[Rfam]
RNA sequence: ACCAGCGGUGGUGCACGCCUGUAGUCCCAGCUGCUCGGGAGGCUGAGCCCGCUGGAUCGCUUGAGCCCAGGAGUUCUGGGCUGUAGUAUGCUAUGCCGAGCGGGCGUCCGCGCUAAGACCGGCAUCAAUAUGGUGAGCACCGGGGAGCCGGGGCACACCAGGAUGCCUAAGGAGGGGUGAACUGGCCCAGGUUGGAAACGGAGCAGGUCAAAACUCCCGUGCCGGUCAGUAGCGGGAUCGCUCCCGUGAAUAGCCACUGCAGCGUAGCCCGGGCAACACAGAGAGACGCGGGCUCCU
Numbered sequence: 001a002c003c004a005g006c007g008g009u010g011g012u013g014c015a016c017g018c019c020u021g022u023a024g025u026c027c028c029a030g031c032u033g034c035u036c037g038g039g040a041g042g043c044u045g046a047g048c049c050c051g052c053u054g055g056a057u058c059g060c061u062u063g064a065g066c067c068c069a070g071g072a073g074u075u076c077u078g079g080g081c082u083g084u085a086g087u088a089u090g091c092u093a094u095g096c097c098g099a100g101c102g103g104g105c106g107u108c109c110g111c112g113c114u115a116a117g118a119c120c121g122g123c124a125u126c127a128a129u130a131u132g133g134u135g136a137g138c139a140c141c142g143g144g145g146a147g148c149c150g151g152g153g154c155a156c157a158c159c160a161g162g163a164u165g166c167c168u169a170a171g172g173a174g175g176g177g178u179g180a181a182c183u184g185g186c187c188c189a190g191g192u193u194g195g196a197a198a199c200g201g202a203g204c205a206g207g208u209c210a211a212a213a214c215u216c217c218c219g220u221g222c223c224g225g226u227c228a229g230u231a232g233c234g235g236g237a238u239c240g241c242u243c244c245c246g247u248g249a250a251u252a253g254c255c256a257c258u259g260c261a262g263c264g265u266a267g268c269c270c271g272g273g274c275a276a277c278a279c280a281g282a283g284a285g286a287c288g289c290g291g292g293c294u295c296c297u
Base pairs, nucleotide, nucleotide: 002042003041004020005016007014025040026039027038045295046294047293048292049291050290051289052288057284058283060281061280065274066273067272068271070269071268076267077266078265080263081262082261083260084259085258086257087256090254091253092252093251094250096248100247101246102245103244104243106241107240108236109235111234112233113232114231115230117227118226119225120224121223122222123221124220125219126165127164129162131160132159133158134157135156137154138153140151141150142149143148166172167171174217175216176215177214178213183210184209185208186207187206192201193200194199
The record is a 297-nucleotide sequence from Anas platyrhynchos, which matches "Metazoan signal recognition particle RNA" in Rfam. Taxonomically the source falls in Anas platyrhynchos (Eukaryota, Chordata, Tetrapoda, Archelosauria). The base pairs follow the family's consensus structure, which is taken from published work. The family's RNA type in Rfam is non-coding RNA gene. Rfam describes the family as follows. The signal recognition particle (SRP) is a universally conserved ribonucleoprotein.